[Rfam]
RNA: Guanidine-I riboswitch aptamer
Organism: Brenneria goodwinii
RNA sequence: UCAAUAGCUGGCUAGGGUUCCGGUUCACUUUUGGUGAAUGACUGGUCCGAGAGCUGGCGACCUCCAGCGAGGUUACACGGCGGGAUAAAAGCCCGGGAGAC
Numbered sequence: 001u002c003a004a005u006a007g008c009u010g011g012c013u014a015g016g017g018u019u020c021c022g023g024u025u026c027a028c029u030u031u032u033g034g035u036g037a038a039u040g041a042c043u044g045g046u047c048c049g050a051g052a053g054c055u056g057g058c059g060a061c062c063u064c065c066a067g068c069g070a071g072g073u074u075a076c077a078c079g080g081c082g083g084g085a086u087a088a089a090a091g092c093c094c095g096g097g098a099g100a101c
Base pairs, nucleotide, nucleotide: 007058008057009056010055011054012053015048016047020045021044022042023039024038025037026036027035028034059074060073061072062071063070064069076096078099082094083093084092